RNA sequence: ACCUGUAGCGGGUCUUCGUCGGAAGGUGCGCAAUUUAACUUGUGGUUUAACCCAAACAAAGCUUUAGCGAGAGCCCAGUUCGAGUCUGAUGGUGUUCGAUCCACUCAUGUAGGUAACUCAUGACGCUGGACGAACCUAAGCAAUGAACACUACCGUCGAGGGAAGCAAUUCUGCAGACAAGUGUUCACCAUUGGACGGCGGCGCUGGAAUACUCCUGCUAAGGUUGGGUUCAACUAUGAGGUUGGCUCAUCGACCGAUAUU
Number, nucleotide and partner (000 for none) at each position: 001a013002c012003c011004u000005g000006u000007a000008g000009c000010g000011g003012g002013u001014c000015u000016u000017c000018g258019u257020c256021g255022g254023a000024a000025g251026g250027u249028g248029c000030g246031c245032a000033a242034u241035u240036u000037a000038a000039c000040u000041u000042g000043u236044g235045g234046u233047u232048u000049a230050a229051c228052c227053c226054a225055a224056a000057c000058a000059a000060a000061g000062c000063u000064u222065u220066a219067g218068c217069g216070a000071g214072a213073g212074c000075c207076c206077a205078g204079u203080u201081c200082g199083a000084g196085u195086c194087u193088g192089a191090u190091g189092g188093u000094g135095u000096u133097c132098g131099a000100u130101c129102c128103a127104c000105u123106c122107a121108u120109g119110u000111a118112g117113g000114u000115a000116a000117c112118u111119c109120a108121u107122g106123a105124c000125g000126c000127u103128g102129g101130a100131c098132g097133a096134a000135c094136c140137u000138a000139a000140g136141c000142a000143a000144u187145g186146a185147a184148c183149a182150c181151u000152a000153c000154c000155g178156u177157c176158g000159a000160g000161g000162g171163a170164a169165g000166c000167a000168a000169u164170u163171c162172u000173g000174c000175a000176g157177a156178c155179a000180a000181g150182u149183g148184u147185u146186c145187a144188c092189c091190a090191u089192u088193g087194g086195a085196c084197g000198g000199c082200g081201g080202c000203g079204c078205u077206g076207g075208a000209a000210u000211a000212c073213u072214c071215c000216u069217g068218c067219u066220a065221a000222g064223g000224u055225u054226g053227g052228g051229u050230u049231c000232a047233a046234c045235u044236a043237u000238g000239a000240g035241g034242u033243u000244g000245g031246c030247u000248c028249a027250u026251c025252g000253a000254c022255c021256g020257a019258u018259a000260u000261u000